[Rfam]
RNA: mir-2774 microRNA precursor family
Organism: Bombyx mori
Nucleotides: 067
Stems, first nucleotide, its partner, number of pairs: 004064003010058002015053002020049004025044004
Number, partner (000 for none) and nucleotide at each position: 001000a002000c003000a004064a005063c006062a007000c008000u009000g010058g011057g012000u013000c014000u015053g016052u017000c018000g019000g020049u021048c022047u023046a024000c025044u026043g027042a028041g029000c030000a031000a032000u033000u034000u035000c036000a037000c038000c039000c040000a041028c042027u043026c044025a045000a046023u047022g048021g049020a050000a051000u052016a053015u054000c055000u056000u057011u058010c059000c060000u061000u062006u063005g064004u065000c066000g067000u